[Rfam]
antisense RNA of dnaA mRNA: an 81-nucleotide RNA from Arsenophonus endosymbiont of Aleurodicus floccissimus.
RNA sequence: UUUUGCAUUCGCUUUGUGCGCCAUGAUGUUAUUACCUACAGCAUGAAGCAGGUGAGUUUUACCUAAUCCUGUACCACCAUA
Numbered sequence: 001u002u003u004u005g006c007a008u009u010c011g012c013u014u015u016g017u018g019c020g021c022c023a024u025g026a027u028g029u030u031a032u033u034a035c036c037u038a039c040a041g042c043a044u045g046a047a048g049c050a051g052g053u054g055a056g057u058u059u060u061a062c063c064u065a066a067u068c069c070u071g072u073a074c075c076a077c078c079a080u081a
Stems, first nucleotide, its partner, number of pairs: 004043003009038001011036001013034001016032003020029002051078004056074002061072002
A reference for the family is Dadzie et al. (2013), "Identification and characterization of a cis-encoded antisense RNA associated with the replication process of Salmonella enterica serovar Typhi", PLoS One.